[Rfam]
A member of the RNA family "Small nucleolar RNA R32/R81/Z41" from Rosa chinensis, 96 nucleotides long. By type it is a C/D-box small nucleolar RNA. Gene Ontology terms of the family: nucleolus and RNA processing. A search with the family's covariance model found it, with a score of 45 bits.

RNA sequence: AGAUGAAGUUGAUGAAAGUAUUCUGAGUGACCAGUGAUGGAUGAUACAUGUGAUCAUAAUUCAAAUACUCUUAGCUACGUUCUUUUUAGUUCAUAA
Dot-bracket structure: ...((((..................................................................................))))...
Numbered sequence: 001a002g003a004u005g006a007a008g009u010u011g012a013u014g015a016a017a018g019u020a021u022u023c024u025g026a027g028u029g030a031c032c033a034g035u036g037a038u039g040g041a042u043g044a045u046a047c048a049u050g051u052g053a054u055c056a057u058a059a060u061u062c063a064a065a066u067a068c069u070c071u072u073a074g075c076u077a078c079g080u081u082c083u084u085u086u087u088a089g090u091u092c093a094u095a096a
Stems, first nucleotide, its partner, number of pairs: 004093004